[Rfam]
RNA sequence: UAAAAUAUAUAAUUCAAUCAUUGGUUGACAGUAUAAUAUAUCAAUAGUGAAGUCUCUUUUUAUGAAAAGG
Numbered sequence: 001u002a003a004a005a006u007a008u009a010u011a012a013u014u015c016a017a018u019c020a021u022u023g024g025u026u027g028a029c030a031g032u033a034u035a036a037u038a039u040a041u042c043a044a045u046a047g048u049g050a051a052g053u054c055u056c057u058u059u060u061u062a063u064g065a066a067a068a069g070g
Base pairs, nucleotide, nucleotide: 014028015027016026017025018024034049035048037046038045039044
About this RNA:
The record is a 70-nucleotide RNA sequence from Trichonephila clavipes, which matches "bablM sRNA" in Rfam. The family's RNA type in Rfam is small RNA. It scores 39 bits against the family's covariance model. On this family, see Meyer et al., BMC Genomics 2009: "Identification of candidate structured RNAs in the marine organism 'Candidatus Pelagibacter ubique'".